[Rfam]
RNA sequence: ACCACUCUGGAAAGCAGGGUGGCGGCCGGACACCCGUCCGGGCCCGCCCUCACCGACGGUGAAAGCCGUGCCGGUGCUCCGCUCGGGGCGCGGGCGCGGUGAAGCUCUCAGGUCGAGAUGACAGAGGGGGAGGC
Numbered sequence: 001a002c003c004a005c006u007c008u009g010g011a012a013a014g015c016a017g018g019g020u021g022g023c024g025g026c027c028g029g030a031c032a033c034c035c036g037u038c039c040g041g042g043c044c045c046g047c048c049c050u051c052a053c054c055g056a057c058g059g060u061g062a063a064a065g066c067c068g069u070g071c072c073g074g075u076g077c078u079c080c081g082c083u084c085g086g087g088g089c090g091c092g093g094g095c096g097c098g099g100u101g102a103a104g105c106u107c108u109c110a111g112g113u114c115g116a117g118a119u120g121a122c123a124g125a126g127g128g129g130g131a132g133g134c
Base pairs, nucleotide, nucleotide: 002129003128005126006125007124008123009122016050017049018048019047020046021045022044052113053112054111055109056108059107061105065100066099067098068097069096070095071094072093
Shown here is a 134-nucleotide sequence from Streptomyces harbinensis, a member of the family "Glycine riboswitch aptamer". The organism belongs to Streptomyces, within Bacteria. A search with the family's covariance model found it, with a score of 35 bits.